[Rfam]
RNA sequence: UGCGCGGGCCGUUACUGGCGCGUGGGGAUGGAGAACCAUCGGGGAGCGGUCCCGUCACGAGGACGCAUGCCGAGCGCCUGGGCCUUCCGC
Numbered sequence: 001u002g003c004g005c006g007g008g009c010c011g012u013u014a015c016u017g018g019c020g021c022g023u024g025g026g027g028a029u030g031g032a033g034a035a036c037c038a039u040c041g042g043g044g045a046g047c048g049g050u051c052c053c054g055u056c057a058c059g060a061g062g063a064c065g066c067a068u069g070c071c072g073a074g075c076g077c078c079u080g081g082g083c084c085u086u087c088c089g090c
Stems, first nucleotide, its partner, number of pairs: 003054002006052007015043002017078005028039004067085001069083003
Rfam assigns this 90-nucleotide sequence from Micromonospora sicca to the family "ZMP/ZTP riboswitch aptamer (pfl RNA motif)". A search with the family's covariance model found it, with a score of 50 bits.